[Rfam]
RNA sequence: CUGCAUGAUGGAAACGGUUAAUUCUUCUUCCUUCCAAGGAGAAUAAGUAUUCCUUCAGUACUAUAAAAUGAGGACUUUUCAGAGCCACCUGCCUUGAAGCACAGGCUGCGUGGUAGCAUGUUUCUCCAACACGA
Dot-bracket structure: ..(.((..............(((((((..........))))))).............)).)..........(((.........((..((.((((........)))).).)..))..........))).......
RNA: Small nucleolar RNA U109
Organism: Laticauda laticaudata